[Rfam]
RNA sequence: UAGAACUGGCAAUCCGACAGGUGGAAUGAUGGAGUAACGCCCUGAAACGCCUGCUCUGAUACUCCGAAUGGCGCAGAUACGAUGAAGCGUGAAAGCGUCAUAAGCUCGGUGAAGUCGGCUGAGAGCAUGCCCUAAAGACAUUCUCAAAAGGAUGGUACAGGAACGGCGAACCAGAGGUGGUCGAGCAUGUGAUAGGCCGGGAGUCCAUGAA
Numbered sequence: 001u002a003g004a005a006c007u008g009g010c011a012a013u014c015c016g017a018c019a020g021g022u023g024g025a026a027u028g029a030u031g032g033a034g035u036a037a038c039g040c041c042c043u044g045a046a047a048c049g050c051c052u053g054c055u056c057u058g059a060u061a062c063u064c065c066g067a068a069u070g071g072c073g074c075a076g077a078u079a080c081g082a083u084g085a086a087g088c089g090u091g092a093a094a095g096c097g098u099c100a101u102a103a104g105c106u107c108g109g110u111g112a113a114g115u116c117g118g119c120u121g122a123g124a125g126c127a128u129g130c131c132c133u134a135a136a137g138a139c140a141u142u143c144u145c146a147a148a149a150g151g152a153u154g155g156u157a158c159a160g161g162a163a164c165g166g167c168g169a170a171c172c173a174g175a176g177g178u179g180g181u182c183g184a185g186c187a188u189g190u191g192a193u194a195g196g197c198c199g200g201g202a203g204u205c206c207a208u209g210a211a
Base pairs, nucleotide, nucleotide: 018053019052020051021050022049023048031043032042034040054203055202056201057200064109065108066107067106068101069100070099071098072097073096074095078091079090080089081088116199117198118197119196120195125190126189127188128187129186130185131161132160133159138156139155167183168182170181171180172179173178
The record is a 211-nucleotide RNA sequence from Pelotomaculum isophthalicicum, which matches "Group II catalytic intron D1-D4-5" in Rfam. Taxonomically the source falls in Pelotomaculum isophthalicicum (Bacteria, Clostridia, Eubacteriales, Desulfotomaculaceae). Rfam 15.1 lists 720 matches to the family in 418 species. Rfam's curators write: Group II introns are found in rRNA, tRNA and mRNA of organelles in fungi, plants and protists, and also in mRNA in bacteria. The literature on the family includes a 2001 paper in Trends Genet by Bonen and Vogel, "The ins and outs of group II introns".